[Rfam]
RNA sequence: GCAUGGAUGAAUUCUGCAUUAGCUUUCCUCAGUAGCUAAUGCAGUCAGACACUAUGCGAGAGCAAAUUCCCUUUUCCCGCUGUGUUGGGUGUGCUUUUCAUAUAAGAAGGGGUGCGCCCCUGGAAGUGGGAUACAU
Numbered sequence: 001g002c003a004u005g006g007a008u009g010a011a012u013u014c015u016g017c018a019u020u021a022g023c024u025u026u027c028c029u030c031a032g033u034a035g036c037u038a039a040u041g042c043a044g045u046c047a048g049a050c051a052c053u054a055u056g057c058g059a060g061a062g063c064a065a066a067u068u069c070c071c072u073u074u075u076c077c078c079g080c081u082g083u084g085u086u087g088g089g090u091g092u093g094c095u096u097u098u099c100a101u102a103u104a105a106g107a108a109g110g111g112g113u114g115c116g117c118c119c120c121u122g123g124a125a126g127u128g129g130g131a132u133a134c135a136u
Base pairs, nucleotide, nucleotide: 001057002056003055004054005053006052014044015043016042017041018040019039070130071129072128073126074125075124076123077122079120087119088118089117090116091115092114093113094112095111096110

Small nucleolar RNA SNORA15: a 136-nucleotide sequence from Piaya cayana. ACA15 is a member of the H/ACA class of snoRNA that guide the sites of modification of uridines to pseudouridines. The family's consensus secondary structure was predicted with RNAfold. The match comes from Rfam's covariance-model search (72 bits). The literature on the family includes a 2001 paper in EMBO J by Huttenhofer et al., "RNomics: an experimental approach that identifies 201 candidates for novel, small, non-messenger RNAs in mouse". Its family is annotated with RNA processing and nucleolus in the Gene Ontology. The family has 22 seed sequences and 974 matches in Rfam 15.1. NCBI's taxonomy places the organism under Eukaryota, Deuterostomia, Euteleostomi, Amniota, Piaya. The family's RNA type in Rfam is H/ACA-box small nucleolar RNA.